[Rfam]
RNA sequence: UGCUGAAGGGGAUUCCUGGUGAUGUGAUUUUCGACGAAUCGCAGAAUCACAUUGCCAGGGAUUACCAGUUGGUG
Number, nucleotide and partner (000 for none) at each position: 001u074002g073003c000004u071005g070006a069007a000008g000009g000010g066011g065012a062013u061014u060015c059016c058017u057018g056019g055020u054021g053022a052023u051024g050025u049026g048027a047028u046029u045030u044031u000032c000033g000034a000035c000036g000037a000038a000039u000040c000041g000042c000043a000044g030045a029046a028047u027048c026049a025050c024051a023052u022053u021054g020055c019056c018057a017058g016059g015060g014061a013062u012063u000064a000065c011066c010067a000068g000069u006070u005071g004072g000073u002074g001
RNA: mir-23 microRNA precursor family